[Rfam]
RNA sequence: ACUAUUGUUUGACGACGAGAGAGAGCACGCUAGUAUGCGUUCAUGCUUGGACAUGAUUGUGUACAAGCGUGCUUUCUAUCGUCGUCAUACGUUU
Numbered sequence: 001a002c003u004a005u006u007g008u009u010u011g012a013c014g015a016c017g018a019g020a021g022a023g024a025g026c027a028c029g030c031u032a033g034u035a036u037g038c039g040u041u042c043a044u045g046c047u048u049g050g051a052c053a054u055g056a057u058u059g060u061g062u063a064c065a066a067g068c069g070u071g072c073u074u075u076c077u078a079u080c081g082u083c084g085u086c087a088u089a090c091g092u093u094u
Stems, first nucleotide, its partner, number of pairs: 010087005016081002020077002023074001025072007033064002
RNA: MIR535 microRNA precursor family